[Rfam]
RNA sequence: GGGGAUGAUCGGUUUCGACGUCGGACACUGCGACGGGAGAAGCGGGCCGAGAAUGUAGAGUCAUCUCGUUAAUGUCCUCUGCAAAACAAUAGGUGCUAAGUCUAAUAACCGCACCGAUUUCGCCCUCGCUGCCUGAUUAGGCCGAGCUGCGAAUCCGUCAGUCUAGAGUUGCUUCCACUCUAGGUCCUGGCGUCGCUUAGGGAGCCACUGCUUCAGAUAUUUGUUGAGGGUAUCUGAGGGACUUUUACUCAACUCCGUUCGUUGGUCCACAUGUUCGUGUGAGGGCCAGAACCUAAGAAACUACUUCACGAACUGCGCCCGGAGAAGUCCUGACAAUCUGCCGACGGACGCGGGUUCGAUUCCCGCCAUCUCCACCC
Numbered sequence: 001g002g003g004g005a006u007g008a009u010c011g012g013u014u015u016c017g018a019c020g021u022c023g024g025a026c027a028c029u030g031c032g033a034c035g036g037g038a039g040a041a042g043c044g045g046g047c048c049g050a051g052a053a054u055g056u057a058g059a060g061u062c063a064u065c066u067c068g069u070u071a072a073u074g075u076c077c078u079c080u081g082c083a084a085a086a087c088a089a090u091a092g093g094u095g096c097u098a099a100g101u102c103u104a105a106u107a108a109c110c111g112c113a114c115c116g117a118u119u120u121c122g123c124c125c126u127c128g129c130u131g132c133c134u135g136a137u138u139a140g141g142c143c144g145a146g147c148u149g150c151g152a153a154u155c156c157g158u159c160a161g162u163c164u165a166g167a168g169u170u171g172c173u174u175c176c177a178c179u180c181u182a183g184g185u186c187c188u189g190g191c192g193u194c195g196c197u198u199a200g201g202g203a204g205c206c207a208c209u210g211c212u213u214c215a216g217a218u219a220u221u222u223g224u225u226g227a228g229g230g231u232a233u234c235u236g237a238g239g240g241a242c243u244u245u246u247a248c249u250c251a252a253c254u255c256c257g258u259u260c261g262u263u264g265g266u267c268c269a270c271a272u273g274u275u276c277g278u279g280u281g282a283g284g285g286c287c288a289g290a291a292c293c294u295a296a297g298a299a300a301c302u303a304c305u306u307c308a309c310g311a312a313c314u315g316c317g318c319c320c321g322g323a324g325a326a327g328u329c330c331u332g333a334c335a336a337u338c339u340g341c342c343g344a345c346g347g348a349c350g351c352g353g354g355u356u357c358g359a360u361u362c363c364c365g366c367c368a369u370c371u372c373c374a375c376c377c
Stems, first nucleotide, its partner, number of pairs: 001373007019346006032334001034332005043321005048068005054083006126145003131142004156192006163183004171205006211239009223253005257286004273313004279307001281305001350366005

A member of the RNA family "transfer-messenger RNA" from Brevibacterium aurantiacum, 377 nucleotides long. The family's consensus secondary structure is taken from published work. Taxonomically the source falls in Brevibacterium (Bacteria, Actinomycetes, Micrococcales, Brevibacteriaceae). Rfam classes the family as a non-coding RNA gene. A reference for the family is Williams and Bartel (1996), "Phylogenetic analysis of tmRNA secondary structure", RNA.